[Rfam]
RNA sequence: UCCACCGUGAGGUGGAAUCUGAAGGAAGCCGGCGGCAAAAUCCCGAACCGACGAAGAGAAACUGCAUAUAAGGCUGAAUUGGAAUGGACGAGUUUGCUAAACAAAACAAAGUCCAAUACUGCCCGAGUUCCAUACAGUAAAUGCAGCGGUUACAUGGGAGGAAGGUUAUAGCU
Dot-bracket structure: ((((((....))))))...........(.(.(..((....((((((((((...........((((((.....(((....(((((.((((..((((........))))...)))).............)))))...)))..)))))))))))...))))).....))..).).)
Shown here is a 173-nucleotide RNA sequence from Lederbergia galactosidilytica, a member of the family "Group II catalytic intron D1-D4-3". Gene Ontology term of the family: Group II intron splicing. From the family's description: Group II introns are found in rRNA, tRNA and mRNA of organelles in fungi, plants and protists, and also in mRNA in bacteria. The base pairs follow the family's consensus structure.